[Rfam]
RNA: Glutamine riboswitch aptamer (glnA leader)
RNA sequence: AUCGUUCAUCCUCUCGCCUGCUGUUUGGCUUAUCGUGGAGCAAGACGGCAGCCGGAGGACGGAAGUAGGGAGCUAUCCCGAAGGAACGCGCC
Number, nucleotide and partner (000 for none) at each position: 001a000002u000003c088004g087005u086006u085007c084008a000009u059010c058011c057012u056013c055014u000015c000016g000017c000018c000019u000020g000021c000022u000023g000024u000025u000026u000027g000028g000029c000030u000031u000032a000033u000034c000035g000036u000037g000038g000039a000040g000041c000042a000043a000044g000045a000046c000047g000048g000049c000050a000051g000052c000053c000054g000055g013056a012057g011058g010059a009060c000061g000062g089063a000064a000065g000066u000067a000068g079069g078070g077071a000072g000073c000074u000075a000076u000077c070078c069079c068080g000081a000082a000083g000084g007085a006086a005087c004088g003089c062090g000091c000092c000